[Rfam]
Overview:
The record is a 509-nucleotide RNA sequence from Actinomadura logoneensis, which matches "Saccharopolyspora sRNA 350" in Rfam. For this family Rfam cites "Prediction and characterization of small non-coding RNAs related to secondary metabolites in Saccharopolyspora erythraea" (Liu et al., PLoS One, 2013). The source organism's lineage runs through Bacteria, Actinomycetes, Streptosporangiales, Thermomonosporaceae and Actinomadura.
RNA sequence: CGGUAGGCGUGCUCCCACUCGCCGGGCGCGGGCAGCAGCGCCGCCGCGCCGAAGUACCGGCCGUCGGCGAGCAGGUCGAGCACGACCUCCGCGCCGUACUCGCCCCGGCCGACCUUCUCGACCUUGCCGUGCGCGAUGAGCACCACGCGGUCCACCGGCCCGCCGGGCUCGACGAUCACGUCGCCGGGCUCGAACUCGCGCUGGACGAACCGUCCGGCGGCGUCCUGGAGCAGCGGCUCGUCCACGCCAGCGAGCUGCGGCAGCUCGGCCAGCUCGGUCGGGAUCACGCUGACCGACGCGCCGGUGUUGACGAACUCGACGACGCCGUCGCCGACGGUGUGCGCGAGGCGGCGGUUGACCCGGUAGGAGCCGCCCGGGACCUCGACCCAGGGCAGCAGCCGCAGCAGGUAGCGGGGCGUGAUGCCCUGCAUCAUCGGCGCGGACUUGGUGGUCGUCGCGAGGUUCCGCGCCGCCCUGGUGGACAGGCUCAGCCGGUCGUCGCCGUCGGC
Numbered sequence: 001c002g003g004u005a006g007g008c009g010u011g012c013u014c015c016c017a018c019u020c021g022c023c024g025g026g027c028g029c030g031g032g033c034a035g036c037a038g039c040g041c042c043g044c045c046g047c048g049c050c051g052a053a054g055u056a057c058c059g060g061c062c063g064u065c066g067g068c069g070a071g072c073a074g075g076u077c078g079a080g081c082a083c084g085a086c087c088u089c090c091g092c093g094c095c096g097u098a099c100u101c102g103c104c105c106c107g108g109c110c111g112a113c114c115u116u117c118u119c120g121a122c123c124u125u126g127c128c129g130u131g132c133g134c135g136a137u138g139a140g141c142a143c144c145a146c147g148c149g150g151u152c153c154a155c156c157g158g159c160c161c162g163c164c165g166g167g168c169u170c171g172a173c174g175a176u177c178a179c180g181u182c183g184c185c186g187g188g189c190u191c192g193a194a195c196u197c198g199c200g201c202u203g204g205a206c207g208a209a210c211c212g213u214c215c216g217g218c219g220g221c222g223u224c225c226u227g228g229a230g231c232a233g234c235g236g237c238u239c240g241u242c243c244a245c246g247c248c249a250g251c252g253a254g255c256u257g258c259g260g261c262a263g264c265u266c267g268g269c270c271a272g273c274u275c276g277g278u279c280g281g282g283a284u285c286a287c288g289c290u291g292a293c294c295g296a297c298g299c300g301c302c303g304g305u306g307u308u309g310a311c312g313a314a315c316u317c318g319a320c321g322a323c324g325c326c327g328u329c330g331c332c333g334a335c336g337g338u339g340u341g342c343g344c345g346a347g348g349c350g351g352c353g354g355u356u357g358a359c360c361c362g363g364u365a366g367g368a369g370c371c372g373c374c375c376g377g378g379a380c381c382u383c384g385a386c387c388c389a390g391g392g393c394a395g396c397a398g399c400c401g402c403a404g405c406a407g408g409u410a411g412c413g414g415g416g417c418g419u420g421a422u423g424c425c426c427u428g429c430a431u432c433a434u435c436g437g438c439g440c441g442g443a444c445u446u447g448g449u450g451g452u453c454g455u456c457g458c459g460a461g462g463u464u465c466c467g468c469g470c471c472g473c474c475c476u477g478g479u480g481g482a483c484a485g486g487c488u489c490a491g492c493c494g495g496u497c498g499u500c501g502c503c504g505u506c507g508g509c
Base pairs, nucleotide, nucleotide: 006387007386008384009383011381013379014378015377018324023318024317025316026315029312036309037308038307039306040305041304042303046301047300048299049298050295051294054231055230057228058227059225060224062222063221064220065111066110067109068108075103077102078101079100080099082097083096084095086093117219122217123216126213127212129210130209131206134203135202138199140197150191155188156187158185160183162177166173233290238286240284241283242282247280249278251276252275253274254273255272258267259266326339327338328337329336350374351373352372353371354370359367360366388428389427390426391425392424393423394422396420397419400415402413404412435472436471437470439468440467441466442465443464444462445461446460448458449457474508475507477503478502479501481497482496483495485493